Shown here is a 360-nucleotide sequence from a Candidatus Aenigmatarchaeota archaeon, a member of the family "Archaeal RNase P". On this family, see Frank and Pace, Annu Rev Biochem 1998: "Ribonuclease P: unity and diversity in a tRNA processing ribozyme". Lineage of the source: Archaea > Nanobdellati > Candidatus Aenigmatarchaeota. The match comes from Rfam's covariance-model search (103 bits). It is annotated as a ribozyme. Clan: RNaseP clan. Its family is annotated with tRNA processing, multimeric ribonuclease P complex and ribonuclease P activity in the Gene Ontology. Ribonuclease P (RNase P) is a ubiquitous endoribonuclease, found in archaea, bacteria and eukarya as well as chloroplasts and mitochondria. Its best characterised activity is the generation of mature 5'-ends of tRNAs by cleaving the 5'-leader elements of precursor-tRNAs. Cellular RNase Ps are ribonucleoproteins.
RNA sequence: UUGAGCUGGGCAGAUAGCUUCCUGGUCGUCUAAUGGGUUGAUUAACCCUGACAAAGACCGGGAGGAAGCUCCAUUCACCUGCCAAGGCAGCGCUGAAAGGUGCAGGCCGAGAGGCCUCUGCAGGACACAGAAAAAACCUGCGCAACGGAGCAAUGAUAUCAGCGAUGUGGCAACACAAAUCGUCGUUGAGCGUCGAGGUUGCGAAAGGGUGAAAGAAUCCGCGGUGCCGGGUGCAAGCCGGUUCAAGGUUUGAUUGGAACUAGUCCAACAGACCGGCUUCAGGCGCUUAGAAAAAUGCUAUCACCUCCGUUCGGGAUCAUACCCGAGGAGAUGACAUAAAAUGGGCUAUGCCCAGCACAA
Numbered sequence: 001u002u003g004a005g006c007u008g009g010g011c012a013g014a015u016a017g018c019u020u021c022c023u024g025g026u027c028g029u030c031u032a033a034u035g036g037g038u039u040g041a042u043u044a045a046c047c048c049u050g051a052c053a054a055a056g057a058c059c060g061g062g063a064g065g066a067a068g069c070u071c072c073a074u075u076c077a078c079c080u081g082c083c084a085a086g087g088c089a090g091c092g093c094u095g096a097a098a099g100g101u102g103c104a105g106g107c108c109g110a111g112a113g114g115c116c117u118c119u120g121c122a123g124g125a126c127a128c129a130g131a132a133a134a135a136a137c138c139u140g141c142g143c144a145a146c147g148g149a150g151c152a153a154u155g156a157u158a159u160c161a162g163c164g165a166u167g168u169g170g171c172a173a174c175a176c177a178a179a180u181c182g183u184c185g186u187u188g189a190g191c192g193u194c195g196a197g198g199u200u201g202c203g204a205a206a207g208g209g210u211g212a213a214a215g216a217a218u219c220c221g222c223g224g225u226g227c228c229g230g231g232u233g234c235a236a237g238c239c240g241g242u243u244c245a246a247g248g249u250u251u252g253a254u255u256g257g258a259a260c261u262a263g264u265c266c267a268a269c270a271g272a273c274c275g276g277c278u279u280c281a282g283g284c285g286c287u288u289a290g291a292a293a294a295a296u297g298c299u300a301u302c303a304c305c306u307c308c309g310u311u312c313g314g315g316a317u318c319a320u321a322c323c324c325g326a327g328g329a330g331a332u333g334a335c336a337u338a339a340a341a342u343g344g345g346c347u348a349u350g351c352c353c354a355g356c357a358c359a360a
Base pairs, nucleotide, nucleotide: 001360002359003358005356006355007354008353009352011350012349013302014301015300016299017298018297022062023061025059067347068346069345071344072343073342074341075340076233077232078231079230081266086228087227088226089225090103091102092101093100094099104117105116106115107114108113118224119223123220124219125218137208138207139206141203142202143201144200145199146198158180159179237284238283239282247274248273249272250271251270